RNA: mir-194 microRNA precursor family
RNA sequence: UGAUGCCUGUCGGAUGUAACAGCAACUCCAUGUGGAAGGUUUCAUCCUGUUUCCAGUGGAGCUGCUGUUAUUUUUGAUAGGUCU
Numbered sequence: 001u002g003a004u005g006c007c008u009g010u011c012g013g014a015u016g017u018a019a020c021a022g023c024a025a026c027u028c029c030a031u032g033u034g035g036a037a038g039g040u041u042u043c044a045u046c047c048u049g050u051u052u053c054c055a056g057u058g059g060a061g062c063u064g065c066u067g068u069u070a071u072u073u074u075u076g077a078u079a080g081g082u083c084u
Stems, first nucleotide, its partner, number of pairs: 010077003016071008026061006033055003